Rfam assigns this 157-nucleotide RNA sequence from Mikania micrantha to the family "small nucleolar RNA snoR134". On this family, see Chen and Wu, Nucleic Acids Res 2009: "Mining small RNA sequencing data: a new approach to identify small nucleolar RNAs in Arabidopsis". Lineage of the source: Eukaryota > asterids > Asterales > Heliantheae alliance > Mikania. Gene Ontology terms of the family: nucleolus and RNA processing. The family has 5 seed sequences and 792 matches in Rfam 15.1. The family's RNA type in Rfam is H/ACA-box small nucleolar RNA.
RNA sequence: CCGCAUGUAGCACCCCGGGCUUCUCUGAAGUAAUAAUCAGAUGAAGAAGAAAGCCCCAAUGCUCGUGCUAGAUCAGAUCAUCUGCCGUCGAGUGUUGCAGUUCAGCCUUCUGUACCUUUUCAAUGGCCGCUUCUGUGUCAAAUUGACGGCUACAAAU
Numbered sequence: 001c002c003g004c005a006u007g008u009a010g011c012a013c014c015c016c017g018g019g020c021u022u023c024u025c026u027g028a029a030g031u032a033a034u035a036a037u038c039a040g041a042u043g044a045a046g047a048a049g050a051a052a053g054c055c056c057c058a059a060u061g062c063u064c065g066u067g068c069u070a071g072a073u074c075a076g077a078u079c080a081u082c083u084g085c086c087g088u089c090g091a092g093u094g095u096u097g098c099a100g101u102u103c104a105g106c107c108u109u110c111u112g113u114a115c116c117u118u119u120u121c122a123a124u125g126g127c128c129g130c131u132u133c134u135g136u137g138u139c140a141a142a143u144u145g146a147c148g149g150c151u152a153c154a155a156a157u
Base pairs, nucleotide, nucleotide: 003068004067005066006065007064010062011061017056018055019054020053021052022050023049024047025046026045084150085149086148087147088146089145090144093140094139096137097136098135099134100133105127106126107125